[Rfam]
RNA sequence: CCAAACCCUCGCGGGGGAAGGAUGAGAAGCUUCGGCGAACGUAAGUGAGCAGAAGGUUCGACCAAUUCGCCAGGAGCGAAUUGGCACGUCACACGAAGUGUGACAGCCCGGAGGGCGAAGGUCAGGAUGACCUGAGUAAUCCUUCCCCCUCCACCA
Numbered sequence: 001c002c003a004a005a006c007c008c009u010c011g012c013g014g015g016g017g018a019a020g021g022a023u024g025a026g027a028a029g030c031u032u033c034g035g036c037g038a039a040c041g042u043a044a045g046u047g048a049g050c051a052g053a054a055g056g057u058u059c060g061a062c063c064a065a066u067u068c069g070c071c072a073g074g075a076g077c078g079a080a081u082u083g084g085c086a087c088g089u090c091a092c093a094c095g096a097a098g099u100g101u102g103a104c105a106g107c108c109c110g111g112a113g114g115g116c117g118a119a120g121g122u123c124a125g126g127a128u129g130a131c132c133u134g135a136g137u138a139a140u141c142c143u144u145c146c147c148c149c150u151c152c153a154c155c156a
Base pairs, nucleotide, nucleotide: 015147016146017145018144019143020142021141023139033117034116036115042112045109083104085102086101087100088099089098
RtT RNA: a 156-nucleotide RNA from Permianibacter aggregans. A search with the family's covariance model found it, with a score of 46 bits. Taxonomically the source falls in Permianibacter (Bacteria, Pseudomonadati, Pseudomonadota, Pseudomonadales). Rfam's curators write: This family represents a bacterial cis-regulatory element known as RtT RNA. The exact function of RtT is unknown although it is thought that it may be involved in changing the cellular response in relation to amino acid starvation.